[Rfam]
RNA sequence: GGCUGGUCAGAAGACAGAGUUAUCUCACUGUUCAGCCAGUUACAGACGGAACUUCUGGUUCUACGACCUUACCCCUUCUCACUUCUGCACUUGACUAGUCUCAA
Numbered sequence: 001g002g003c004u005g006g007u008c009a010g011a012a013g014a015c016a017g018a019g020u021u022a023u024c025u026c027a028c029u030g031u032u033c034a035g036c037c038a039g040u041u042a043c044a045g046a047c048g049g050a051a052c053u054u055c056u057g058g059u060u061c062u063a064c065g066a067c068c069u070u071a072c073c074c075c076u077u078c079u080c081a082c083u084u085c086u087g088c089a090c091u092u093g094a095c096u097a098g099u100c101u102c103a104a
Base pairs, nucleotide, nucleotide: 001100002099003098004097005096006095007094008093010092011091015087016083017082018079019078038062039061
Dot-bracket structure: ((((((((.((...(((((..................((.....................))...............))..))...)...))))))))))....